[Rfam]
RNA sequence: UUGAACCGAUACCGAGGCAGGCCAACAGCAUGGGGGAUGACCUGCAAAAGCAGGAGGCUGCACCGAGUGCAUCACCGAUACCCCGCAAUACCUCAACUGCUGCCCGCUCUGGCGCACAGGUAUCGUUCA
Numbered sequence: 001u002u003g004a005a006c007c008g009a010u011a012c013c014g015a016g017g018c019a020g021g022c023c024a025a026c027a028g029c030a031u032g033g034g035g036g037a038u039g040a041c042c043u044g045c046a047a048a049a050g051c052a053g054g055a056g057g058c059u060g061c062a063c064c065g066a067g068u069g070c071a072u073c074a075c076c077g078a079u080a081c082c083c084c085g086c087a088a089u090a091c092c093u094c095a096a097c098u099g100c101u102g103c104c105c106g107c108u109c110u111g112g113c114g115c116a117c118a119g120g121u122a123u124c125g126u127u128c129a
Stems, first nucleotide, its partner, number of pairs: 002129004007125007018032002021029002033084003041054005056076002059071005

Background:
Rfam assigns this 129-nucleotide RNA from Yersinia pestis to the family "EFASI RNA". The family's RNA type in Rfam is small RNA.